Shown here is a 174-nucleotide sequence, a member of the family "malK-I RNA".
Rfam classes the family as a cis-regulatory element.
RNA sequence: CACGGUCGAUCGGCUCUACUCCACUCAGAUAGCUCCGGUCCGCCAAAAAAGGAGGAAAAAUACCCAUCCGCCCGACUUGCGGUGCGGCAGUGUGGAGACCUGCCGUAAUCCGGCGCUUCGCGUCGGGAGAUGCGCGCAUGCGGAGGCACGCGCAUUAAAGUCAGAUGUAUGGCA
Numbered sequence: 001c002a003c004g005g006u007c008g009a010u011c012g013g014c015u016c017u018a019c020u021c022c023a024c025u026c027a028g029a030u031a032g033c034u035c036c037g038g039u040c041c042g043c044c045a046a047a048a049a050a051g052g053a054g055g056a057a058a059a060a061u062a063c064c065c066a067u068c069c070g071c072c073c074g075a076c077u078u079g080c081g082g083u084g085c086g087g088c089a090g091u092g093u094g095g096a097g098a099c100c101u102g103c104c105g106u107a108a109u110c111c112g113g114c115g116c117u118u119c120g121c122g123u124c125g126g127g128a129g130a131u132g133c134g135c136g137c138a139u140g141c142g143g144a145g146g147c148a149c150g151c152g153c154a155u156u157a158a159a160g161u162c163a164g165a166u167g168u169a170u171g172g173c174a
Stems, first nucleotide, its partner, number of pairs: 008040006016032003068082004072164001074162005083107008092099002110126006129156008139148003